RNA sequence: AUUUAAAUUUUCCUCCUGUUUGAGCUAGUUUUUGGGUAAUUUUAGAAAUAUAUUAUAGUUAAGUGCCCCCCUCUGUUGUAAAAUGGAGUGUUAAACUGGGUGAAUUGCAAGGAUCUCCUACCAGGGGUGGGCAUAAAAGCCCACGUCAUCUUUUGGGAUGACAAAGCUGGGGACAAUUUGCAGCGAAGCUCUCAUCGGCACAUAAUUGGUGAGAGAACGUUCAACGACUAGGUGAUGAGUUAUGCCAACAAUAAUCCACCCAAGAGCGCCCGGCCCCUGGUAUCUUAUUAUGAGUGCUAGGGUGAUGACAUAGUCUGAACAUGUUGGUAACGACAUG
Number, nucleotide and partner (000 for none) at each position: 001a037002u036003u035004u034005a033006a032007a031008u000009u000010u000011u000012c000013c000014u000015c000016c000017u000018g000019u000020u000021u000022g000023a000024g000025c000026u000027a000028g000029u000030u000031u007032u006033u005034g004035g003036g002037u001038a000039a000040u000041u052042u000043u050044a000045g000046a000047a000048a000049u000050a043051u000052a041053u000054u000055a000056u000057a000058g000059u000060u000061a000062a000063g000064u000065g000066c000067c000068c000069c000070c000071c000072u000073c000074u000075g000076u000077u000078g000079u000080a000081a000082a000083a000084u000085g000086g000087a000088g000089u000090g000091u000092u000093a000094a000095a000096c273097u272098g271099g270100g000101u268102g267103a000104a000105u000106u182107g181108c180109a179110a178111g177112g000113a000114u000115c000116u173117c172118c171119u170120a000121c000122c000123a000124g000125g000126g000127g000128u000129g000130g000131g000132c000133a000134u000135a000136a000137a000138a000139g000140c000141c000142c000143a000144c000145g000146u000147c000148a000149u000150c000151u000152u000153u000154u000155g000156g000157g000158a000159u000160g000161a000162c000163a000164a000165a000166g000167c000168u000169g000170g119171g118172g117173a116174c000175a000176a000177u111178u110179u109180g108181c107182a106183g220184c219185g000186a000187a000188g000189c000190u213191c000192u000193c000194a000195u000196c209197g000198g000199c000200a000201c000202a000203u000204a000205a000206u000207u000208g000209g196210u000211g000212a000213g190214a000215g000216a000217a000218c000219g184220u183221u000222c000223a000224a316225c000226g315227a314228c313229u312230a311231g000232g000233u000234g000235a000236u000237g000238a000239g000240u000241u000242a000243u000244g000245c000246c000247a000248a000249c000250a000251a000252u000253a000254a000255u000256c000257c000258a000259c000260c000261c000262a000263a000264g000265a000266g000267c102268g101269c000270c099271c098272g097273g096274c000275c302276c301277c300278u299279g298280g297281u296282a295283u294284c000285u000286u000287a000288u000289u000290a000291u000292g000293a000294g283295u282296g281297c280298u279299a278300g277301g276302g275303u000304g000305a000306u000307g000308a000309c000310a000311u230312a229313g228314u227315c226316u224317g000318a000319a000320c000321a000322u335323g334324u333325u332326g331327g000328u000329a000330a000331c326332g325333a324334c323335a322336u000337g000

Group I catalytic intron: a 337-nucleotide RNA sequence from Powellomyces hirtus. The literature on the family includes a 1990 paper in Annu Rev Biochem by Cech, "Self-splicing of group I introns".